[Rfam]
RNA sequence: CGGCACAACCACGGGAGUCCGGUGAGCCGGGCUGAGAGGAAGCGAACCACGCUUCGACCGUCGAACCUGAUCUGGAUCAUGCCAGCGCAGGGAGGAGUCAGAAUGAGUGU
Numbered sequence: 001c002g003g004c005a006c007a008a009c010c011a012c013g014g015g016a017g018u019c020c021g022g023u024g025a026g027c028c029g030g031g032c033u034g035a036g037a038g039g040a041a042g043c044g045a046a047c048c049a050c051g052c053u054u055c056g057a058c059c060g061u062c063g064a065a066c067c068u069g070a071u072c073u074g075g076a077u078c079a080u081g082c083c084a085g086c087g088c089a090g091g092g093a094g095g096a097g098u099c100a101g102a103a104u105g106a107g108u109g110u
Stems, first nucleotide, its partner, number of pairs: 009095002011061004017032005039055005066091004072085004
Shown here is a 110-nucleotide RNA sequence from Microbacterium sp. Root61, a member of the family "TPP riboswitch aptamer (THI element)". About the family: Vitamin B(1) in its active form thiamin pyrophosphate (TPP) is an essential coenzyme that is synthesised by coupling of pyrimidine and thiazole moieties in bacteria. The previously detected thiamin-regulatory element, thi box was extended, resulting in a new, highly conserved RNA secondary structure, the THI element, which is widely distributed in eubacteria and also occurs in some archaea. Analysis of operon structures identified a large number of new candidate thiamin-regulated genes, mostly transporters, in various prokaryotic organisms. The THI element is a riboswitch that directly binds to TPP to regulate gene expression through a variety of mechanisms in archaea, bacteria and eukaryotes. through a variety of mechanisms in archaea, bacteria and eukaryotes. Tandem TPP riboswitches have been reported where both TPP riboswitches respond independently to TPP. The structure of TPP riboswitch has been reported for Escherichia coli and Arabidopsis thaliana.